[Rfam]
RNA sequence: ACACUCUGGCUUCUCUUCAGCUCGUAUAAAUCUUUCGCCUUUUACUAAAGAUUUCCGUGGAGAGGAGCAUCAAAGAGUUUUACGAAUUUUUUGAUGCCUUAUGAAAGCGGGAAA
Dot-bracket structure: ..((((..(((((((((((........((((((((...........))))))))...)))))))))))......))))....................((.(........).))
Numbered sequence: 001a002c003a004c005u006c007u008g009g010c011u012u013c014u015c016u017u018c019a020g021c022u023c024g025u026a027u028a029a030a031u032c033u034u035u036c037g038c039c040u041u042u043u044a045c046u047a048a049a050g051a052u053u054u055c056c057g058u059g060g061a062g063a064g065g066a067g068c069a070u071c072a073a074a075g076a077g078u079u080u081u082a083c084g085a086a087u088u089u090u091u092u093g094a095u096g097c098c099u100u101a102u103g104a105a106a107g108c109g110g111g112a113a114a
Stems, first nucleotide, its partner, number of pairs: 003078004009068011028054008099114002102111001
About this RNA:
A member of the RNA family "U5 spliceosomal RNA" from Polypterus senegalus, 114 nucleotides long. About the family: U5 RNA is a component of both types of known spliceosome. The precise function of this molecule is unknown, though it is known that the 5' loop is required for splice site selection and p220 binding, and that both the 3' stem-loop and the Sm site are important for Sm protein binding and cap methylation. Rfam classes the family as a spliceosomal small nuclear RNA. A search with the family's covariance model found it, with a score of 93 bits.